Purine riboswitch aptamer: a 102-nucleotide RNA sequence from Staphylococcus simulans.
RNA sequence: CAUUAAAUAAUUUACCUUACUCAUAUAAUCUAGAGAAUUAGGCUUUAGAAGUUUCUACCAUGUCGCCUUAACGACAUGACUAUGAGUCACUGAUACAAUACA
Numbered sequence: 001c002a003u004u005a006a007a008u009a010a011u012u013u014a015c016c017u018u019a020c021u022c023a024u025a026u027a028a029u030c031u032a033g034a035g036a037a038u039u040a041g042g043c044u045u046u047a048g049a050a051g052u053u054u055c056u057a058c059c060a061u062g063u064c065g066c067c068u069u070a071a072c073g074a075c076a077u078g079a080c081u082a083u084g085a086g087u088c089a090c091u092g093a094u095a096c097a098a099u100a101c102a
Stems, first nucleotide, its partner, number of pairs: 019087007029049007059078007
Source information
A search with the family's covariance model found it, with a score of 71 bits. Rfam's curators write: Riboswitches are metabolite binding domains within certain messenger RNAs that serve as precision sensors for their corresponding targets. Allosteric rearrangement of mRNA structure is mediated by ligand binding, and this results in modulation of gene expression. A class of riboswitches that selectively recognises guanine and becomes saturated at concentrations as low as 5 nM. In Bacillus subtilis, this mRNA motif is located on at least five separate transcriptional units that together encode 17 genes that are mostly involved in purine transport and purine nucleotide biosynthesis.